Record summary:
Small nucleolar RNA snoR77: a 125-nucleotide sequence from Lathyrus oleraceus. Rfam 15.1 lists 649 matches to the family in 221 species. The base pairs follow the family's consensus structure, which was predicted with WAR. It scores 56 bits against the family's covariance model. For this family Rfam cites "Experimental RNomics: identification of 140 candidates for small non-messenger RNAs in the plant Arabidopsis thaliana" (Marker et al., Curr Biol, 2002).
RNA sequence: AGGAAGCCUAAUUGCUACAAUUAAUGCAUUAAAUGGCAUGAGAGGUCUUUAACUGCUCAUAAAUCAAAUGCUAUUAAGAAUUGCUGAGAUUUUUCUCUGAAGCUGGUUUAGUAAGCUAGUAGGCC
Numbered sequence: 001a002g003g004a005a006g007c008c009u010a011a012u013u014g015c016u017a018c019a020a021u022u023a024a025u026g027c028a029u030u031a032a033a034u035g036g037c038a039u040g041a042g043a044g045g046u047c048u049u050u051a052a053c054u055g056c057u058c059a060u061a062a063a064u065c066a067a068a069u070g071c072u073a074u075u076a077a078g079a080a081u082u083g084c085u086g087a088g089a090u091u092u093u094u095c096u097c098u099g100a101a102g103c104u105g106g107u108u109u110a111g112u113a114a115g116c117u118a119g120u121a122g123g124c125c
Stems, first nucleotide, its partner, number of pairs: 002049002005046001007045002009042001013038005070116003077109003081105001083103003088095002